[Rfam]
RNA sequence: AGCCUUUGUGUUGCCCAUUCACUUUUGAAACAAGUGAGUGAGAUGUCAAAAAAGACAAAAAUAAAUGCUUUGCAGUCUUUUCCACCCCUUACAUUUGGUGUAUUUGGUGUAGGAGCUGCAUAAGUAACACUU
Number, nucleotide and partner (000 for none) at each position: 001a000002g056003c000004c054005u053006u052007u051008g000009u048010g047011u000012u045013g044014c000015c042016c040017a039018u038019u037020c036021a035022c034023u033024u000025u000026u000027g000028a000029a000030a000031c000032a000033a023034g022035u021036g020037a019038g018039u017040g016041a000042g015043a000044u013045g012046u000047c010048a009049a000050a000051a007052a006053a005054g004055a000056c002057a000058a000059a000060a000061a000062u000063a000064a000065a000066u000067g125068c124069u123070u122071u120072g119073c118074a117075g116076u115077c000078u000079u000080u000081u114082c113083c112084a000085c000086c109087c107088c106089u000090u000091a000092c000093a000094u000095u000096u000097g000098g000099u000100g000101u000102a000103u000104u000105u000106g088107g087108u000109g086110u000111a000112g083113g082114a081115g076116c075117u074118g073119c072120a071121u000122a070123a069124g068125u067126a000127a000128c000129a000130c000131u000132u000

Rfam assigns this 132-nucleotide RNA sequence from Fukomys damarensis to the family "Small nucleolar RNA SNORA13". From the family's description: ACA13 is a member of the H/ACA class of snoRNA that guide the sites of modification of uridines to pseudouridines. Taxonomically the source falls in Fukomys (Eukaryota, Euteleostomi, Sarcopterygii, Eutheria). It scores 111 bits against the family's covariance model. Pairs were carried over by alignment from the consensus structure, which was predicted with CMfinder. The family's RNA type in Rfam is H/ACA-box small nucleolar RNA.